[Rfam]
RNA sequence: CCUGAUAAAGCCAAACCCGUCGUGAGGCGGGGACGGAAAGCUGCGGGUCUUCUUCGUGAAGAUAGCCGGGUUACCUGGA
Numbered sequence: 001c002c003u004g005a006u007a008a009a010g011c012c013a014a015a016c017c018c019g020u021c022g023u024g025a026g027g028c029g030g031g032g033a034c035g036g037a038a039a040g041c042u043g044c045g046g047g048u049c050u051u052c053u054u055c056g057u058g059a060a061g062a063u064a065g066c067c068g069g070g071u072u073a074c075c076u077g078g079a
Stems, first nucleotide, its partner, number of pairs: 004075001011036002016031006034065001039072004044068003047063003
This 79-nucleotide RNA sequence from Candidatus Moduliflexus flocculans belongs to the Rfam family "c-di-GMP-I-GGC riboswitch aptamer". The family is grouped with related families in Rfam's "c-di-GMP_I riboswitch clan". A search with the family's covariance model found it, with a score of 69 bits.